The family of this 211-nucleotide RNA from Paraburkholderia ribeironis is "Burkholderia sRNA 11".
The source organism's lineage runs through Bacteria, Pseudomonadati, Betaproteobacteria, Burkholderiaceae and Paraburkholderia.
From the family's description: Identified by RNA-seq, RACE and Northern blot. Strongly expressed in biofilm. Identified in as ncRNA13.
Rfam classes the family as a small RNA.
Its family is annotated with bacterial biofilm matrix in the Gene Ontology.
RNA sequence: AUCCCUUCGCUAAGGAGUCUCUUAUGCGGAAACUCAUGGCCGCUAUCAUAGCGGGCCUGAUAGGGCUGACCGCGCUGUCCGUGUCGGUCACGGCUGUCGCAUGUGGUGAUUCGAGUUAUCAGUCUUCGGCUGAUGGCAAAUGAACCCACCGCCCGAAGGCGCCGAGUGCGCACAAAAAAAGGCCUUCAUCUGACGAUGAGGGCCUUUUACU
Numbered sequence: 001a002u003c004c005c006u007u008c009g010c011u012a013a014g015g016a017g018u019c020u021c022u023u024a025u026g027c028g029g030a031a032a033c034u035c036a037u038g039g040c041c042g043c044u045a046u047c048a049u050a051g052c053g054g055g056c057c058u059g060a061u062a063g064g065g066c067u068g069a070c071c072g073c074g075c076u077g078u079c080c081g082u083g084u085c086g087g088u089c090a091c092g093g094c095u096g097u098c099g100c101a102u103g104u105g106g107u108g109a110u111u112c113g114a115g116u117u118a119u120c121a122g123u124c125u126u127c128g129g130c131u132g133a134u135g136g137c138a139a140a141u142g143a144a145c146c147c148a149c150c151g152c153c154c155g156a157a158g159g160c161g162c163c164g165a166g167u168g169c170g171c172a173c174a175a176a177a178a179a180a181g182g183c184c185u186u187c188a189u190c191u192g193a194c195g196a197u198g199a200g201g202g203c204c205u206u207u208u209a210c211u
Stems, first nucleotide, its partner, number of pairs: 002036001006030005013022003038057003041053004063154004072100003075096001079093005103149003108145001110144003159171004177208014
A search with the family's covariance model found it, with a score of 121 bits.